The record is an 81-nucleotide sequence, which matches "RAGATH-28 RNA" in Rfam. By type it is a small RNA. The sequence is in the family's curated seed alignment.
RNA sequence: GCGGGGUGAUUCGUCCCCCGCCCGUGGCCAUGGCGGGCAUAGAGGGGUAAAAACCGGGCGGAAACGGCCGGAUGGCGAAGC
Numbered sequence: 001g002c003g004g005g006g007u008g009a010u011u012c013g014u015c016c017c018c019c020g021c022c023c024g025u026g027g028c029c030a031u032g033g034c035g036g037g038c039a040u041a042g043a044g045g046g047g048u049a050a051a052a053a054c055c056g057g058g059c060g061g062a063a064a065c066g067g068c069c070g071g072a073u074g075g076c077g078a079a080g081c
Base pairs, nucleotide, nucleotide: 001021002020003019004018005017006016054071055070056069057068059066060065
The family's consensus secondary structure is taken from published work.